About this RNA
Shown here is a 37-nucleotide sequence from Fulvivirga marina, a member of the family "DUF805b RNA". The family's consensus secondary structure is taken from published work. The source organism's lineage runs through Bacteria, Pseudomonadati, Cytophagia, Cytophagales and Fulvivirga.
RNA sequence: UAGGAGCAAGUCGAAAAUCCUUUAAAUAGAGUAGACA
Numbered sequence: 001u002a003g004g005a006g007c008a009a010g011u012c013g014a015a016a017a018u019c020c021u022u023u024a025a026a027u028a029g030a031g032u033a034g035a036c037a
Stems, first nucleotide, its partner, number of pairs: 002021004010036003